[Rfam]
FuFi-1 RNA: a 166-nucleotide RNA sequence from Lachnospiraceae bacterium 10-1. It is one of the family's seed sequences. The base pairs follow the family's consensus structure, which is taken from published work. Lineage of the source: Bacteria > Bacillota > Clostridia > Lachnospirales > Lachnospiraceae.
RNA sequence: UCCACCAGCUAAUGGGCCUUUUUAUUGUUGCUGAACUAAAACUGCAUAAGUGGUGGAGCGCUCGAAGAAACAUUGGUGUCGUACAAUGUGGUGAAAACCUGCAAAGCGCAUAGAGUUAAAAAAUUUAGGUAAAAAACUGUUAGUGACGACACACUAGCAGUUUUUU
Numbered sequence: 001u002c003c004a005c006c007a008g009c010u011a012a013u014g015g016g017c018c019u020u021u022u023u024a025u026u027g028u029u030g031c032u033g034a035a036c037u038a039a040a041a042c043u044g045c046a047u048a049a050g051u052g053g054u055g056g057a058g059c060g061c062u063c064g065a066a067g068a069a070a071c072a073u074u075g076g077u078g079u080c081g082u083a084c085a086a087u088g089u090g091g092u093g094a095a096a097a098c099c100u101g102c103a104a105a106g107c108g109c110a111u112a113g114a115g116u117u118a119a120a121a122a123a124u125u126u127a128g129g130u131a132a133a134a135a136a137c138u139g140u141u142a143g144u145g146a147c148g149a150c151a152c153a154c155u156a157g158c159a160g161u162u163u164u165u166u
Stems, first nucleotide, its partner, number of pairs: 001057007029046003033042001036129002039126002058109005070089006077151006090099003133164013